RNA sequence: CGGGCGGUGAAGUCCCAGGCGCCGGGCUCGUCCAGGAGCGCGUCGGCGCCGAGGUGGUCGCCGUCGGCCAGCCGGCCCAGCACGAUCUCCUCGUCGUACUUGCCGCGGCCGACCUUGCUGACCCGGCCGUGCGCGAUCAGCAGCAGCCGGUCCACCGGGGCGCCGGCCUCGACGAUCACCUCGCCGGGCCCGUGCUCGUGCUGCUCGAACCGGUCGGCCAGCGCCUCCAGCACGGCGGCGUCGCCGUACCCCUUGAGGGCGUGGAUCUCGCCCAGCUCGGCGGGGAUGACCCGGACCUGGGAGCCCACGUUGGUGAACGUGACCCGCCCGUCCCCGAGGGUGUACGUCAGCCGCCGGUUGACCCGGUAGGUCCCGGCGGAGACCUGCACCCACGGCAGCAGCCGCAGCAGCCACCGGGAGGUGAUGCUCUGCAUCUGCGGGACGGACUUGGUGGUCGACGCGAGGUUGCGCGCCGCCGCGGUGCUGAGGCUGCUGUUCCUGCCGC
Numbered sequence: 001c002g003g004g005c006g007g008u009g010a011a012g013u014c015c016c017a018g019g020c021g022c023c024g025g026g027c028u029c030g031u032c033c034a035g036g037a038g039c040g041c042g043u044c045g046g047c048g049c050c051g052a053g054g055u056g057g058u059c060g061c062c063g064u065c066g067g068c069c070a071g072c073c074g075g076c077c078c079a080g081c082a083c084g085a086u087c088u089c090c091u092c093g094u095c096g097u098a099c100u101u102g103c104c105g106c107g108g109c110c111g112a113c114c115u116u117g118c119u120g121a122c123c124c125g126g127c128c129g130u131g132c133g134c135g136a137u138c139a140g141c142a143g144c145a146g147c148c149g150g151u152c153c154a155c156c157g158g159g160g161c162g163c164c165g166g167c168c169u170c171g172a173c174g175a176u177c178a179c180c181u182c183g184c185c186g187g188g189c190c191c192g193u194g195c196u197c198g199u200g201c202u203g204c205u206c207g208a209a210c211c212g213g214u215c216g217g218c219c220a221g222c223g224c225c226u227c228c229a230g231c232a233c234g235g236c237g238g239c240g241u242c243g244c245c246g247u248a249c250c251c252c253u254u255g256a257g258g259g260c261g262u263g264g265a266u267c268u269c270g271c272c273c274a275g276c277u278c279g280g281c282g283g284g285g286a287u288g289a290c291c292c293g294g295a296c297c298u299g300g301g302a303g304c305c306c307a308c309g310u311u312g313g314u315g316a317a318c319g320u321g322a323c324c325c326g327c328c329c330g331u332c333c334c335c336g337a338g339g340g341u342g343u344a345c346g347u348c349a350g351c352c353g354c355c356g357g358u359u360g361a362c363c364c365g366g367u368a369g370g371u372c373c374c375g376g377c378g379g380a381g382a383c384c385u386g387c388a389c390c391c392a393c394g395g396c397a398g399c400a401g402c403c404g405c406a407g408c409a410g411c412c413a414c415c416g417g418g419a420g421g422u423g424a425u426g427c428u429c430u431g432c433a434u435c436u437g438c439g440g441g442a443c444g445g446a447c448u449u450g451g452u453g454g455u456c457g458a459c460g461c462g463a464g465g466u467u468g469c470g471c472g473c474c475g476c477c478g479c480g481g482u483g484c485u486g487a488g489g490c491u492g493c494u495g496u497u498c499c500u501g502c503c504g505c
Stems, first nucleotide, its partner, number of pairs: 006390004011385002015381001018328002021325001023321002026318001028316002037311004042306001045305003049301002052298001054233002058229001060227001063224002065111004075103001077102001079100002082097005117222004122217002127212001129210002131206001133204003138198001140196001143195002149191002155187004162177001166173001234296001236294001240290004245285001249283002252280002255278001257277002261271003329342004351379007360372004391431002394428004399423002403418001405416001407415001437476004443470002446467001447465003451461002477504002480499002484495001486493001
RNA: Saccharopolyspora sRNA 350